TPP riboswitch aptamer (THI element): a 115-nucleotide sequence from Saccharopolyspora rhizosphaerae.
RNA sequence: ACUGAUCCACGCGGGAGCUCGGGCGCACCGGGCUGAGAGGGUGGCAACGCACCGCGCCACCGACCGCAGAACCUGUCCGGAUAAUGCCGGCGUAGGGAGCUGUUGAUGGCGCUUG
Numbered sequence: 001a002c003u004g005a006u007c008c009a010c011g012c013g014g015g016a017g018c019u020c021g022g023g024c025g026c027a028c029c030g031g032g033c034u035g036a037g038a039g040g041g042u043g044g045c046a047a048c049g050c051a052c053c054g055c056g057c058c059a060c061c062g063a064c065c066g067c068a069g070a071a072c073c074u075g076u077c078c079g080g081a082u083a084a085u086g087c088c089g090g091c092g093u094a095g096g097g098a099g100c101u102g103u104u105g106a107u108g109g110c111g112c113u114u115g
Stems, first nucleotide, its partner, number of pairs: 007102001010099001011067004017033005040061005072096004077090004
Lineage of the source: Bacteria > Actinomycetota > Pseudonocardiales > Pseudonocardiaceae > Saccharopolyspora. The match comes from Rfam's covariance-model search (55 bits). Its family is annotated with thiamine pyrophosphate binding in the Gene Ontology.